[Rfam]
RNA sequence: CCCCACACAAAGGUGUGGGGUUCUUAUUUCGUCAGCUACGGGGGUCUGCUCGUG
Numbered sequence: 001c002c003c004c005a006c007a008c009a010a011a012g013g014u015g016u017g018g019g020g021u022u023c024u025u026a027u028u029u030c031g032u033c034a035g036c037u038a039c040g041g042g043g044g045u046c047u048g049c050u051c052g053u054g
Stems, first nucleotide, its partner, number of pairs: 001020008